[Rfam]
RNA sequence: AACUGUCAAUGAUGAGCUUGUUUAAAACACAAUGGGAAUCUCUCUGAAAAAGAAUGAAAGAGGACUUUAAACUGAUGCAGUG
Numbered sequence: 001a002a003c004u005g006u007c008a009a010u011g012a013u014g015a016g017c018u019u020g021u022u023u024a025a026a027a028c029a030c031a032a033u034g035g036g037a038a039u040c041u042c043u044c045u046g047a048a049a050a051a052g053a054a055u056g057a058a059a060g061a062g063g064a065c066u067u068u069a070a071a072c073u074g075a076u077g078c079a080g081u082g
Stems, first nucleotide, its partner, number of pairs: 002081005

The record is an 82-nucleotide RNA sequence from Dicentrarchus labrax, which matches "Small nucleolar RNA SNORD79" in Rfam. Its family is annotated with RNA processing and nucleolus in the Gene Ontology. Rfam 15.1 lists 784 matches to the family in 651 species. A search with the family's covariance model found it, with a score of 71 bits. From the family's description: snoRNA U79 or Z22 is found in intron 7 of the gas5 gene in humans and is also present in mice. The organism belongs to Dicentrarchus, within Eukaryota.